This 76-nucleotide RNA sequence from Altericroceibacterium indicum belongs to the Rfam family "Makes More Granules Regulator RNA (mmgR)".
The pairing is the family consensus, mapped onto this sequence.
Rfam links the family to the GO terms protein binding, DNA-templated transcription, termination and response to nitrogen compound.
By type it is a small RNA.
RNA sequence: GGAACUCGCCUUUUCAGGCAUCCUCUCCCAAAACUUUUCAGCCCGGUCUUUAUGGCCGGGCUUUUCUUUGCCUGUU
Dot-bracket structure: .......((((....))))....................(((((((((.....)))))))))..............